Nucleotides: 117
Base pairs, nucleotide, nucleotide: 003115004114005113006112007111008110013041015040016039017038021031022030023029025090027088028087042082043081044080045079047078048077050073051072052071053070054069055068056067057066086109091106092105093104094103095102
Number, partner (000 for none) and nucleotide at each position: 001000a002000a003115c004114u005113u006112a007111u008110c009000u010000c011000g012000a013041g014000a015040g016039g017038u018000g019000g020000a021031g022030g023029g024000a025090c026000u027088g028087g029023c030022c031021c032000u033000g034000u035000g036000a037000a038017a039016c040015c041013c042082g043081g044080c045079a046000a047078c048077c049000a050073g051072c052071a053070u054069g055068a056067a057066u058000u059000u060000c061000a062000u063000u064000u065000a066057a067056u068055u069054u070053g071052u072051g073050u074000a075000a076000u077048g078047g079045u080044g081043c082042u083000a084000a085000u086109u087028c088027c089000u090025g091106c092105a093104g094103u095102u096000u097000u098000a099000u100000a101000u102095a103094a104093c105092u106091g107000g108000a109086a110008g111007a112006u113005g114004a115003g116000a117000a
SAM riboswitch aptamer (S box leader): a 117-nucleotide RNA from Clostridium fungisolvens. The match comes from Rfam's covariance-model search (82 bits). Lineage of the source: Bacteria > Bacillati > Clostridia > Clostridiaceae > Clostridium.